The family of this 81-nucleotide sequence from Coturnix japonica is "Small nucleolar RNA SNORD103/SNORD85".
Taxonomically the source falls in Coturnix (Eukaryota, Craniata, Sauropsida, Aves).
Rfam classes the family as a C/D-box small nucleolar RNA.
A reference for the family is Vitali et al. (2003), "Identification of 13 novel human modification guide RNAs", Nucleic Acids Res.
[Rfam]
RNA sequence: UCUGGCGAUGAUGACACACUUGCCCUCCCUGAGAACACUGUUCAGUAAUGAGAGCCUCACAGUGUGCACAGCUGAGCCGGG
Numbered sequence: 001u002c003u004g005g006c007g008a009u010g011a012u013g014a015c016a017c018a019c020u021u022g023c024c025c026u027c028c029c030u031g032a033g034a035a036c037a038c039u040g041u042u043c044a045g046u047a048a049u050g051a052g053a054g055c056c057u058c059a060c061a062g063u064g065u066g067c068a069c070a071g072c073u074g075a076g077c078c079g080g081g
Base pairs, nucleotide, nucleotide: 001081002080003079004078005077006076